About this RNA
A member of the RNA family "raiA RNA" from Christensenella hongkongensis, 201 nucleotides long. The source organism's lineage runs through Bacteria, Bacillota, Clostridia, Christensenellales and Christensenella.
Nucleotides: 201
Stems, first nucleotide, its partner, number of pairs: 001201002005197005012192003015186005028172003031041001034091006050085001058077001060075001062074003083179001103165005108123005127158004136150005
Number, partner (000 for none) and nucleotide at each position: 001201a002200a003000a004000c005197u006196u007195u008194g009193c010000g011000u012192c013191u014190g015186u016185g017184g018183u019182u020000g021000a022000a023000a024000g025000c026000c027000g028172a029171c030170g031041c032000c033000a034091g035090u036089c037088g038087c039086a040000g041031g042000c043000a044000a045000a046000a047000c048000g049000g050085c051000c052000c053000a054000c055000g056000u057000a058077a059000g060075c061000a062074g063073c064072g065000c066000c067000u068000u069000u070000g071000g072064c073063g074062c075060g076000g077058u078000g079000a080000g081000c082000a083179u084000a085050g086039u087038g088037c089036g090035g091034c092000u093000a094000g095000a096000c097000g098000u099000a100000a101000g102000c103165c104164c105163g106162u107161c108123c109122u110121u111120c112119c113000g114000a115000a116000a117000a118000a119112g120111g121110a122109a123108g124000a125000g126000a127158g128157g129156a130155g131000u132000a133000a134000g135000a136150g137149u138148g139147g140146c141000g142000u143000a144000a145000u146140g147139c148138c149137g150136c151000g152000g153000g154000g155130c156129u157128c158127c159000c160000a161107g162106g163105c164104g165103g166000c167000g168000a169000a170030u171029g172028u173000g174000g175000g176000g177000g178000a179083a180000a181000a182019g183018a184017c185016c186015a187000g188000g189000u190014c191013a192012g193009g194008c195007a196006a197005a198000u199000c200002u201001u